[Rfam]
RNA sequence: AUGUUACUGUAGGGGUGCCCGUCGUAACGGCGGACUGAGAUCAUACCCUCAAACCUGAUCCGGGUAAUACCGGCGUAGGGAACAGAGCUUGAACUCUU
Dot-bracket structure: ......((((((((.((.(((((.....))))).).......)..))))....((((..((((......))))..))))..)))).............